[Rfam]
RNA sequence: CCUCCCUUUAAAUCAGUCCUGCGAGGCUGACAAGGGGUAUACUCCUCUUACUUAAAGUUUGUCUAUUGGACUGAUUUUAAGUAGACGAACGUACCUCUUUGAUAAACAACAAAGAGGUUUUUUGUAU
Numbered sequence: 001c002c003u004c005c006c007u008u009u010a011a012a013u014c015a016g017u018c019c020u021g022c023g024a025g026g027c028u029g030a031c032a033a034g035g036g037g038u039a040u041a042c043u044c045c046u047c048u049u050a051c052u053u054a055a056a057g058u059u060u061g062u063c064u065a066u067u068g069g070a071c072u073g074a075u076u077u078u079a080a081g082u083a084g085a086c087g088a089a090c091g092u093a094c095c096u097c098u099u100u101g102a103u104a105a106a107c108a109a110c111a112a113a114g115a116g117g118u119u120u121u122u123u124g125u126a127u
Stems, first nucleotide, its partner, number of pairs: 003037006013030006050082010061071003089122001091120001093118009

A member of the RNA family "PyrR binding site" from Anaerobacillus isosaccharinicus, 127 nucleotides long. Rfam links the family to the GO terms pyrimidine nucleobase biosynthetic process and pyrimidine nucleobase transport. It is annotated as a cis-regulatory element. A reference for the family is Bonner et al. (2001), "Molecular recognition of pyr mRNA by the Bacillus subtilis attenuation regulatory protein PyrR", Nucleic Acids Res. Taxonomically the source falls in Anaerobacillus (Bacteria, Bacillati, Bacilli, Caryophanales).